Overview: Alphaproteobacteria transfer-messenger RNA: a 349-nucleotide sequence from Ruegeria pomeroyi. The organism belongs to Ruegeria pomeroyi, within Bacteria. Rfam classes the family as a non-coding RNA gene. The base pairs follow the family's consensus structure, which is taken from published work. Rfam links the family to the GO term RNA catabolic process.

RNA sequence: GCCAUUGCGCUUGCCCGCAGAGCGACUAUAUUCAACCUGUUCCCUCGGGAACUAUGGACAUAAACGCGCUCGUAAUAAGCGGUUCGGACCCGGGGGCGGUACCCGGCGGCUCCACCAGACACCCUCGUUGGGGGAUCAUGGGGCCGAAACAGGAUCGACGGACGUCUAAAGGGGUUAGCUUUGUCUCGGCGGGGUACCACCGUUAUCGGUCCGCAAAGCAUAAUUGCCAACGACAAUCGUGCUCCGGUUGCUCUGGCUGCGUAAGCAGUCCGAAACACCGAAACUUAAGCCCUUGCGCCUAGCAGCGUAAGGCGGGGUUCGCAGGUACCUGGCAACAGAAACCUGCAUU
Number, nucleotide and partner (000 for none) at each position: 001g000002c000003c000004a000005u000006u000007g000008c000009g000010c000011u000012u000013g000014c000015c000016c000017g000018c000019a000020g000021a000022g000023c000024g000025a000026c000027u000028a000029u000030a000031u000032u000033c000034a000035a000036c000037c000038u000039g052040u051041u050042c049043c048044c000045u000046c000047g000048g043049g042050a041051a040052c039053u000054a000055u000056g186057g185058a184059c183060a182061u000062a000063a000064a000065c000066g179067c178068g175069c174070u173071c172072g000073u000074a000075a000076u000077a000078a000079g000080c164081g163082g000083u000084u161085c160086g159087g000088a000089c000090c106091c105092g104093g103094g102095g000096g000097c000098g000099g000100u000101a000102c094103c093104c092105g091106g090107c146108g145109g144110c143111u142112c141113c140114a000115c000116c000117a000118g000119a000120c000121a000122c000123c000124c000125u000126c000127g000128u000129u000130g000131g000132g000133g000134g000135a000136u000137c000138a000139u000140g113141g112142g111143g110144c109145c108146g107147a000148a000149a000150c000151a000152g000153g000154a000155u000156c000157g000158a000159c086160g085161g084162a000163c081164g080165u000166c000167u000168a000169a000170a000171g000172g071173g070174g069175u068176u000177a000178g067179c066180u000181u000182u060183g059184u058185c057186u056187c202188g201189g200190c000191g000192g000193g212194g211195u000196a210197c209198c208199a000200c189201c188202g187203u000204u000205a000206u000207c000208g198209g197210u196211c194212c193213g000214c000215a000216a000217a000218g000219c000220a000221u000222a000223a000224u000225u000226g000227c000228c000229a000230a000231c000232g000233a000234c000235a000236a000237u000238c000239g000240u000241g000242c000243u000244c000245c000246g000247g000248u000249u000250g000251c000252u000253c000254u000255g000256g000257c000258u000259g000260c000261g000262u000263a000264a000265g000266c000267a000268g000269u000270c000271c000272g000273a000274a000275a000276c000277a000278c000279c000280g000281a000282a000283a000284c000285u000286u000287a000288a000289g000290c000291c000292c000293u000294u000295g000296c000297g000298c000299c000300u000301a000302g000303c000304a000305g000306c000307g000308u000309a000310a000311g000312g000313c000314g000315g330316g329317g328318u327319u000320c000321g346322c345323a344324g343325g342326u341327a318328c317329c316330u315331g000332g000333c000334a000335a000336c000337a000338g000339a000340a000341a326342c325343c324344u323345g322346c321347a000348u000349u000